[Rfam]
RNA sequence: UAGUAUUGAGGAUAGAAAAGGCAGCUAUCACCCUUGUUAGGAGAUAUGGGAAGGGUCACCCCAUCUUUACUA
Numbered sequence: 001u002a003g004u005a006u007u008g009a010g011g012a013u014a015g016a017a018a019a020g021g022c023a024g025c026u027a028u029c030a031c032c033c034u035u036g037u038u039a040g041g042a043g044a045u046a047u048g049g050g051a052a053g054g055g056u057c058a059c060c061c062c063a064u065c066u067u068u069a070c071u072a
Base pairs, nucleotide, nucleotide: 001072002071003070004069005068008065011029012028013027014026015025020057021056022055031041046064047063048062049061050060

Shown here is a 72-nucleotide sequence, a member of the family "skipping-rope RNA". The base pairs follow the family's consensus structure, which is taken from published work.